[Rfam]
The family of this 102-nucleotide sequence from Desmospora activa is "Purine riboswitch aptamer". A search with the family's covariance model found it, with a score of 81 bits. Rfam links the family to the GO term purine nucleobase biosynthetic process. Pairs were carried over by alignment from the consensus structure, which is taken from published work. Its Rfam clan is "Purine riboswitches".
RNA sequence: AUUCAUCAAUCGUGCUUUUCUCAUAUAUGCCUGGGAAUAGGGCCUGGGCGUCUCUACCCGGAAACCGUAAAUUUCCGGACUAUGGGAAACGCCUUGCCGUGG
Numbered sequence: 001a002u003u004c005a006u007c008a009a010u011c012g013u014g015c016u017u018u019u020c021u022c023a024u025a026u027a028u029g030c031c032u033g034g035g036a037a038u039a040g041g042g043c044c045u046g047g048g049c050g051u052c053u054c055u056a057c058c059c060g061g062a063a064a065c066c067g068u069a070a071a072u073u074u075c076c077g078g079a080c081u082a083u084g085g086g087a088a089a090c091g092c093c094u095u096g097c098c099g100u101g102g
Base pairs, nucleotide, nucleotide: 018088019087020086021085022084023083024082025081029049030048031047032046033045034044035043058078059077060076061075062074063073064072